[Rfam]
Nucleotides: 046
Stems, first nucleotide, its partner, number of pairs: 011039003017031005
Number, partner (000 for none) and nucleotide at each position: 001000u002000g003000c004000g005000c006000u007000u008000a009000u010000u011039u012038c013037g014000a015000u016000c017031u018030c019029u020028g021027c022000u023000u024000u025000u026000g027021g028020c029019a030018g031017a032000c033000u034000u035000u036000a037013c038012g039011a040000a041000a042000c043000c044000c045000g046000c